RNA sequence: CUGACGGGCGCGUUCGGGUCAAUUGCGGACUGCAACACCCAGCCUCCCUCCUCGUGCCGCCGGGAAUGGCGGUCGAAGAGGGGGAACGCGUGACCAUCAG
Numbered sequence: 001c002u003g004a005c006g007g008g009c010g011c012g013u014u015c016g017g018g019u020c021a022a023u024u025g026c027g028g029a030c031u032g033c034a035a036c037a038c039c040c041a042g043c044c045u046c047c048c049u050c051c052u053c054g055u056g057c058c059g060c061c062g063g064g065a066a067u068g069g070c071g072g073u074c075g076a077a078g079a080g081g082g083g084g085a086a087c088g089c090g091u092g093a094c095c096a097u098c099a100g
Stems, first nucleotide, its partner, number of pairs: 001100004008091006016040003023035005044084007052076002
Source information:
Rfam assigns this 100-nucleotide RNA sequence from Halomarina oriensis to the family "L4-Archaeoglobi ribosomal protein leades". Taxonomically the source falls in Halomarina (Archaea, Methanobacteriota, Halobacteriales, Natronomonadaceae).